RNA sequence: CUGAUCGCCCAGAUGGGGAUCGGUGACAAGGCGGGACGCCGUUCCUGCGGUGCUUCCGACGUCUGUACCCAUGUUGCUCAAAGGAGGAUAUGGCUAUGGCAA
Numbered sequence: 001c002u003g004a005u006c007g008c009c010c011a012g013a014u015g016g017g018g019a020u021c022g023g024u025g026a027c028a029a030g031g032c033g034g035g036a037c038g039c040c041g042u043u044c045c046u047g048c049g050g051u052g053c054u055u056c057c058g059a060c061g062u063c064u065g066u067a068c069c070c071a072u073g074u075u076g077c078u079c080a081a082a083g084g085a086g087g088a089u090a091u092g093g094c095u096a097u098g099g100c101a102a
Stems, first nucleotide, its partner, number of pairs: 001023006008017002032058004063099005069093007077086003
Shown here is a 102-nucleotide sequence from Salipiger profundus, a member of the family "Repression of heat shock gene expression (ROSE) element".
It is annotated as an RNA thermoregulator.
Pairs were carried over by alignment from the consensus structure, which is taken from published work.
Gene Ontology terms of the family: regulation of translation and response to temperature stimulus.
This family represents a 5' UTR cis-regulatory element found in heat shock mRNAs and is known as the ROSE (repression of heat shock gene expression) element. The ROSE element is a negative regulator of heat shock gene expression. The secondary structure is thought to be regulated by temperature. This regulation blocks access to the ribosome binding site under normal conditions.